This 85-nucleotide RNA sequence from Gemmiger sp. An120 belongs to the Rfam family "ZMP/ZTP riboswitch aptamer (pfl RNA motif)". NCBI's taxonomy places the organism under Bacteria, Bacillota, Clostridia, Eubacteriales, Gemmiger. Its family is annotated with one-carbon metabolic process and regulation of purine nucleotide biosynthetic process in the Gene Ontology. It scores 64 bits against the family's covariance model.

[Rfam]
RNA sequence: GCAGACGCCUGUGACUGACGGAUCAGUGGAACUACCACAGGGGAACAGGCCGUCCCAUACAUUGCCGACCGUCUGGGCAGCAUCG
Numbered sequence: 001g002c003a004g005a006c007g008c009c010u011g012u013g014a015c016u017g018a019c020g021g022a023u024c025a026g027u028g029g030a031a032c033u034a035c036c037a038c039a040g041g042g043g044a045a046c047a048g049g050c051c052g053u054c055c056c057a058u059a060c061a062u063u064g065c066c067g068a069c070c071g072u073c074u075g076g077g078c079a080g081c082a083u084c085g
Stems, first nucleotide, its partner, number of pairs: 004053001007050006015042002017073005026038004062080005